This 47-nucleotide sequence from Ricinus communis belongs to the Rfam family "Plastid-ycf3 group II-D1 intron". On this family, see Richter et al., Plant Commun 2023: "Retrograde signaling in plants: A critical review focusing on the GUN pathway and beyond".
[Rfam]
RNA sequence: AUUCCUUCUAUCGGGUAUCCCCGAUUAAUGCAGCAUCAGAUAUUUCA
Number, nucleotide and partner (000 for none) at each position: 001a000002u000003u000004c000005c000006u000007u000008c000009u000010a025011u024012c023013g022014g000015g000016u000017a000018u000019c000020c000021c000022c013023g012024a011025u010026u000027a000028a000029u000030g000031c000032a044033g043034c000035a000036u000037c000038a000039g000040a000041u000042a000043u033044u032045u000046c000047a000